Source information: This 81-nucleotide sequence from Megalops atlanticus belongs to the Rfam family "mir-31 microRNA precursor family". NCBI's taxonomy places the organism under Eukaryota, Metazoa, Deuterostomia, Chordata, Megalops. Clan: mir-31 microRNA precursor family. Gene Ontology terms of the family: gene silencing by miRNA and RISC complex.
RNA sequence: GGGAUAGAAGAUGGCAAGAUGUUGGCAUAGCUGUUGAAUUUAGUGCCCUGCUAUGCCUCCAUAUUGCCAUCCUCUGCUGCC
Dot-bracket structure: ....((((.((((((((.(((..((((((((..................))))))))..))).)))))))).)))).....